[Rfam]
RNA sequence: GGACGGCCACCGCCGAGUCGCUGGACGUCACUGGCGUCGCCAGGCGAGCCGGGGAACCACCGCAGGUUUCGGGGUGAAUCCGCAUCAGCGGUAGGGCGCCUUCCACGCCCGAACCCGUCAGCUAACCCGGCAGGCGGUCGAGGUCGGUGCA
Numbered sequence: 001g002g003a004c005g006g007c008c009a010c011c012g013c014c015g016a017g018u019c020g021c022u023g024g025a026c027g028u029c030a031c032u033g034g035c036g037u038c039g040c041c042a043g044g045c046g047a048g049c050c051g052g053g054g055a056a057c058c059a060c061c062g063c064a065g066g067u068u069u070c071g072g073g074g075u076g077a078a079u080c081c082g083c084a085u086c087a088g089c090g091g092u093a094g095g096g097c098g099c100c101u102u103c104c105a106c107g108c109c110c111g112a113a114c115c116c117g118u119c120a121g122c123u124a125a126c127c128c129g130g131c132a133g134g135c136g137g138u139c140g141a142g143g144u145c146g147g148u149g150c151a
Base pairs, nucleotide, nucleotide: 011136012135013134014133018047019046020045021044022043048131049130050129051128052127053126058071072116073115074114080091081090082089083088094110095109096108097107

A member of the RNA family "c-di-AMP riboswitch aptamer (ydaO/yuaA leader)" from Micromonospora sicca, 151 nucleotides long.